[Rfam]
RNA sequence: GUCAGAGAUGUGUUGUGCGUGUGUGUGGCGUGAUCGCUCACCAAGUAUUUAGCGGGAUUCUACCCUGUUCGUUCCGCCCGCGCGUGAUCGCGAUUGUGUCGAACCGUAACCCACUAUAGACGCUCCAGGACAUUUU
Numbered sequence: 001g002u003c004a005g006a007g008a009u010g011u012g013u014u015g016u017g018c019g020u021g022u023g024u025g026u027g028g029c030g031u032g033a034u035c036g037c038u039c040a041c042c043a044a045g046u047a048u049u050u051a052g053c054g055g056g057a058u059u060c061u062a063c064c065c066u067g068u069u070c071g072u073u074c075c076g077c078c079c080g081c082g083c084g085u086g087a088u089c090g091c092g093a094u095u096g097u098g099u100c101g102a103a104c105c106g107u108a109a110c111c112c113a114c115u116a117u118a119g120a121c122g123c124u125c126c127a128g129g130a131c132a133u134u135u136u
Base pairs, nucleotide, nucleotide: 006136007135008133009132010131011130013128014127015126017123018122019121020120022118023117024116025114026113027112028111029106030105032104034102035101036100039098040097041096043094046090049087050086051085052083053082054081060080064076067073

Rfam assigns this 136-nucleotide RNA sequence from Burkholderia vietnamiensis to the family "h2cR sRNA". A reference for the family is Ramos et al. (2012), "The Novel Cis-Encoded Small RNA h2cR Is a Negative Regulator of hfq2 in Burkholderia cenocepacia", PLoS One. The pairing is the family consensus, mapped onto this sequence. It is one of the family's seed sequences. Taxonomically the source falls in Burkholderia vietnamiensis (Bacteria, Betaproteobacteria, Burkholderiales, Burkholderiaceae).